[Rfam]
RNA sequence: UUCUUAUCGAGAGAGAUGGAGGGAUUUGGCCCUGUGAAGUCUCAGCAACCGGACGUGUUUGUCACGGUGCUAAUUCCAAUAGGUGAAGCCUAGUAGAUGAGAA
Number, nucleotide and partner (000 for none) at each position: 001u103002u102003c101004u100005u099006a098007u097008c096009g000010a000011g000012a000013g043014a042015g041016a040017u039018g000019g000020a000021g032022g031023g030024a000025u000026u079027u078028g077029g076030c023031c022032c021033u000034g000035u000036g000037a000038a000039g017040u016041c015042u014043c013044a071045g070046c069047a068048a000049c067050c066051g000052g063053a062054c061055g060056u000057g000058u000059u000060u055061g054062u053063c052064a000065c000066g050067g049068u047069g046070c045071u044072a000073a000074u000075u095076c029077c028078a027079a026080u092081a091082g090083g089084u088085g000086a000087a000088g084089c083090c082091u081092a080093g000094u000095a075096g008097a007098u006099g005100a004101g003102a002103a001

The record is a 103-nucleotide RNA sequence from Planococcus rifietoensis, which matches "SAM riboswitch aptamer (S box leader)" in Rfam. The SAM riboswitch is found upstream of a number of genes which code for proteins involved in methionine or cysteine biosynthesis in Gram-positive bacteria. A search with the family's covariance model found it, with a score of 84 bits. Gene Ontology term of the family: regulation of gene expression. The family's consensus secondary structure is taken from published work.